[Rfam]
RNA sequence: GAACAAAUUAAUAAUGUUACUUGUAUAAUGGUGGGGAUAUGGCCCACAAGUAUCUACCAAGUUGCCGUAAAUGACUUGACUACAAGUGAUCUCCUUAGCAGG
Numbered sequence: 001g002a003a004c005a006a007a008u009u010a011a012u013a014a015u016g017u018u019a020c021u022u023g024u025a026u027a028a029u030g031g032u033g034g035g036g037a038u039a040u041g042g043c044c045c046a047c048a049a050g051u052a053u054c055u056a057c058c059a060a061g062u063u064g065c066c067g068u069a070a071a072u073g074a075c076u077u078g079a080c081u082a083c084a085a086g087u088g089a090u091c092u093c094c095u096u097a098g099c100a101g102g
Stems, first nucleotide, its partner, number of pairs: 018088008029049001031047005058078007
Shown here is a 102-nucleotide sequence from Mesobacillus campisalis, a member of the family "Purine riboswitch aptamer".
Rfam's curators write: Riboswitches are metabolite binding domains within certain messenger RNAs that serve as precision sensors for their corresponding targets.
Gene Ontology term of the family: purine nucleobase biosynthetic process.
The match comes from Rfam's covariance-model search (85 bits).